[Rfam]
The record is a 75-nucleotide RNA sequence, which matches "Gut-1 RNA" in Rfam. The base pairs follow the family's consensus structure, which is taken from published work. The family's RNA type in Rfam is small RNA.
RNA sequence: CAAUGUCAUUCGCCGUUGGCGAGUGACAUCUGACUUUGUCAGGUGAAAUCGUCCUGUCGGACGGUGAAAUUGCCC
Numbered sequence: 001c002a003a004u005g006u007c008a009u010u011c012g013c014c015g016u017u018g019g020c021g022a023g024u025g026a027c028a029u030c031u032g033a034c035u036u037u038g039u040c041a042g043g044u045g046a047a048a049u050c051g052u053c054c055u056g057u058c059g060g061a062c063g064g065u066g067a068a069a070u071u072g073c074c075c
Stems, first nucleotide, its partner, number of pairs: 008024007028044006048065007